[Rfam]
RNA sequence: UCGAGACACCGCGAUUGGAUUCGGGCCGGCAUGGAUAAACUGGCCACGGAUCGUCAUCGGGCGCAGCCCCCGACGCAUCCGGCCAUGUUCAGCCAGCAGCCGCUGCAACCCCAGGGAG
Numbered sequence: 001u002c003g004a005g006a007c008a009c010c011g012c013g014a015u016u017g018g019a020u021u022c023g024g025g026c027c028g029g030c031a032u033g034g035a036u037a038a039a040c041u042g043g044c045c046a047c048g049g050a051u052c053g054u055c056a057u058c059g060g061g062c063g064c065a066g067c068c069c070c071c072g073a074c075g076c077a078u079c080c081g082g083c084c085a086u087g088u089u090c091a092g093c094c095a096g097c098a099g100c101c102g103c104u105g106c107a108a109c110c111c112c113a114g115g116g117a118g
Stems, first nucleotide, its partner, number of pairs: 048080004057073005094105004